A member of the RNA family "T-box leader" from Clostridium amylolyticum, 243 nucleotides long. Gene Ontology term of the family: tRNA binding. On this family, see Winkler et al., RNA 2001: "The GA motif: an RNA element common to bacterial antitermination systems, rRNA, and eukaryotic RNAs". The family's RNA type in Rfam is cis-regulatory leader.

RNA sequence: AUAAAUCCAAUGAGAAGGAAGAGUACCUGUGUUAACUAUGUUUCAGAGAGUUGAGGGUGGUGUGAUCUCAAUACAGAAGUAUGCAGGGAAUGGACCUUUAAGGAGUAAGCCGAAACCUUAUUAAGGUAGUAGUACUUAACGGGAUCCGCCCGUGAAAGCGGUAAGACAUGAUAGUGUCUGAAUGAGAUGUGCUUAUAAUAAGCAUAAUUUAGGUGGUACCGCGAAUAUAACUUCGCCCUAUUG
Numbered sequence: 001a002u003a004a005a006u007c008c009a010a011u012g013a014g015a016a017g018g019a020a021g022a023g024u025a026c027c028u029g030u031g032u033u034a035a036c037u038a039u040g041u042u043u044c045a046g047a048g049a050g051u052u053g054a055g056g057g058u059g060g061u062g063u064g065a066u067c068u069c070a071a072u073a074c075a076g077a078a079g080u081a082u083g084c085a086g087g088g089a090a091u092g093g094a095c096c097u098u099u100a101a102g103g104a105g106u107a108a109g110c111c112g113a114a115a116c117c118u119u120a121u122u123a124a125g126g127u128a129g130u131a132g133u134a135c136u137u138a139a140c141g142g143g144a145u146c147c148g149c150c151c152g153u154g155a156a157a158g159c160g161g162u163a164a165g166a167c168a169u170g171a172u173a174g175u176g177u178c179u180g181a182a183u184g185a186g187a188u189g190u191g192c193u194u195a196u197a198a199u200a201a202g203c204a205u206a207a208u209u210u211a212g213g214u215g216g217u218a219c220c221g222c223g224a225a226u227a228u229a230a231c232u233u234c235g236c237c238c239u240a241u242u243g
Stems, first nucleotide, its partner, number of pairs: 007103002015098004026087006039075003050072006106138004111132001140152003189205007210240004221236005